[Rfam]
RNA sequence: ACCUGAAAUACAUACUUCUUUACAUUCCAUAGCUUGCCAGGUCCAUAUGGGCAUAUAAAGAAGUAUGUCUCUCAAGC
Numbered sequence: 001a002c003c004u005g006a007a008a009u010a011c012a013u014a015c016u017u018c019u020u021u022a023c024a025u026u027c028c029a030u031a032g033c034u035u036g037c038c039a040g041g042u043c044c045a046u047a048u049g050g051g052c053a054u055a056u057a058a059a060g061a062a063g064u065a066u067g068u069c070u071c072u073c074a075a076g077c
Stems, first nucleotide, its partner, number of pairs: 008070001010068013024054001027050005
This 77-nucleotide RNA from Phoenicopterus ruber belongs to the Rfam family "mir-1 microRNA precursor family". The match comes from Rfam's covariance-model search (49 bits). Pairs were carried over by alignment from the consensus structure, which was predicted with RNAalifold. Its family is annotated with RISC complex and miRNA-mediated post-transcriptional gene silencing in the Gene Ontology. This family represents the microRNA (miRNA) mir-1 family. miRNAs are transcribed as ~70nt precursors (modelled here) and subsequently processed by the Dicer enzyme to give a ~22nt product. In this case the mature sequence comes from the 3' arm of the precursor.